The family of this 71-nucleotide RNA sequence from Vireo altiloquus is "RybB RNA". Lineage of the source: Eukaryota > Euteleostomi > Saurischia > Neoaves > Vireo. For this family Rfam cites "Identification of novel small RNAs using comparative genomics and microarrays" (Wassarman et al., Genes Dev, 2001). The match comes from Rfam's covariance-model search (45 bits).
[Rfam]
RNA sequence: ACUGCUUCUCCUCGAUGUCACUAAAUUGGGGAACCCCUUCCUCUUCUUUAUUUAGGGAGGGGUUUCUUCUU
Numbered sequence: 001a002c003u004g005c006u007u008c009u010c011c012u013c014g015a016u017g018u019c020a021c022u023a024a025a026u027u028g029g030g031g032a033a034c035c036c037c038u039u040c041c042u043c044u045u046c047u048u049u050a051u052u053u054a055g056g057g058a059g060g061g062g063u064u065u066c067u068u069c070u071u
Stems, first nucleotide, its partner, number of pairs: 032064011

Annotation
Rfam's curators write: This ncRNA was identified in a large scale screen of E. coli. The function of this short RNA is unknown. The exact 5' and 3' ends of this RNA are uncertain.